[Rfam]
RNA sequence: UUAUAGAACGUUUUAGCUAAUGAACUGUUUUGUCGCUCUCUGUCAAAGAACAAUUUGUUUGUUGACAGAUAGGGACAAAACAGUUCAAUAGCUAAAACGUUCUAUAAC
Numbered sequence: 001u002u003a004u005a006g007a008a009c010g011u012u013u014u015a016g017c018u019a020a021u022g023a024a025c026u027g028u029u030u031u032g033u034c035g036c037u038c039u040c041u042g043u044c045a046a047a048g049a050a051c052a053a054u055u056u057g058u059u060u061g062u063u064g065a066c067a068g069a070u071a072g073g074g075a076c077a078a079a080a081c082a083g084u085u086c087a088a089u090a091g092c093u094a095a096a097a098c099g100u101u102c103u104a105u106a107a108c
Stems, first nucleotide, its partner, number of pairs: 001107006011097009021087008029069007049059004